RNA: Glm Y RNA activator of glmS mRNA
Organism: Tatumella morbirosei
RNA sequence: CGCAGCUCAUUCUGCUCUUUAUGAUGCCCUGCGAAAGCGGUCAAGAGCUCAUAAACUUUGAAUGAUGCCCCAAGGUGCCUGCCGUCCGACUGUUGAUAAUCGUCAGUUAUACUGCGUUAUCAUGCCACGGGCGUAACGUUGAGUAAGGCACCGCCUU
Numbered sequence: 001c002g003c004a005g006c007u008c009a010u011u012c013u014g015c016u017c018u019u020u021a022u023g024a025u026g027c028c029c030u031g032c033g034a035a036a037g038c039g040g041u042c043a044a045g046a047g048c049u050c051a052u053a054a055a056c057u058u059u060g061a062a063u064g065a066u067g068c069c070c071c072a073a074g075g076u077g078c079c080u081g082c083c084g085u086c087c088g089a090c091u092g093u094u095g096a097u098a099a100u101c102g103u104c105a106g107u108u109a110u111a112c113u114g115c116g117u118u119a120u121c122a123u124g125c126c127a128c129g130g131g132c133g134u135a136a137c138g139u140u141g142a143g144u145a146a147g148g149c150a151c152c153g154c155c156u157u
Stems, first nucleotide, its partner, number of pairs: 005068002007065006019054006026048002074152007083133005094122006136144002